Rfam assigns this 135-nucleotide RNA sequence from Vibrio vulnificus to the family "Gammaprotebacteria rimP leader".
It is one of the family's seed sequences.
Its family is annotated with regulation of gene expression in the Gene Ontology.
The base pairs follow the family's consensus structure, which is taken from published work.
The source organism's lineage runs through Bacteria, Pseudomonadati, Gammaproteobacteria, Vibrionaceae and Vibrio vulnificus.
RNA sequence: GGUUGUUUAACGUAUCAGGGUCCAGCAACAAAAAACCCCGACUAAUCGGGGUUUUUUGUUAUCUGUACUUCUCGCUGGUGCGAGUUUUGUACAGAUAGUGCUUGGUUUUUAUAUUGGGCUCUGAGCCCUUUUUUU
Numbered sequence: 001g002g003u004u005g006u007u008u009a010a011c012g013u014a015u016c017a018g019g020g021u022c023c024a025g026c027a028a029c030a031a032a033a034a035a036c037c038c039c040g041a042c043u044a045a046u047c048g049g050g051g052u053u054u055u056u057u058g059u060u061a062u063c064u065g066u067a068c069u070u071c072u073c074g075c076u077g078g079u080g081c082g083a084g085u086u087u088u089g090u091a092c093a094g095a096u097a098g099u100g101c102u103u104g105g106u107u108u109u110u111a112u113a114u115u116g117g118g119c120u121c122u123g124a125g126c127c128c129u130u131u132u133u134u135u
Base pairs, nucleotide, nucleotide: 032055033054034053035052036051037050038049039048040047116128117127118126119125